A member of the RNA family "ALIL pseudoknot", 117 nucleotides long. The match comes from Rfam's covariance-model search (67 bits). Pairs were carried over by alignment from the consensus structure, which is taken from published work.
RNA sequence: CGCCUGUCGGGUAAGAGGAAGCUCGACCGCCCCUUCAAACGAUGAUCUCGUUCAUUGACGAACACCGAUGGGGUGUUCGGGGUCGAGCCGAUCUGCAGGCUUUUGCCGAUUGCCCCA
Numbered sequence: 001c002g003c004c005u006g007u008c009g010g011g012u013a014a015g016a017g018g019a020a021g022c023u024c025g026a027c028c029g030c031c032c033c034u035u036c037a038a039a040c041g042a043u044g045a046u047c048u049c050g051u052u053c054a055u056u057g058a059c060g061a062a063c064a065c066c067g068a069u070g071g072g073g074u075g076u077u078c079g080g081g082g083u084c085g086a087g088c089c090g091a092u093c094u095g096c097a098g099g100c101u102u103u104u105g106c107c108g109a110u111u112g113c114c115c116c117a
Base pairs, nucleotide, nucleotide: 015030017028018027079116080115081114082113089112090111092109093108095106096105097104098103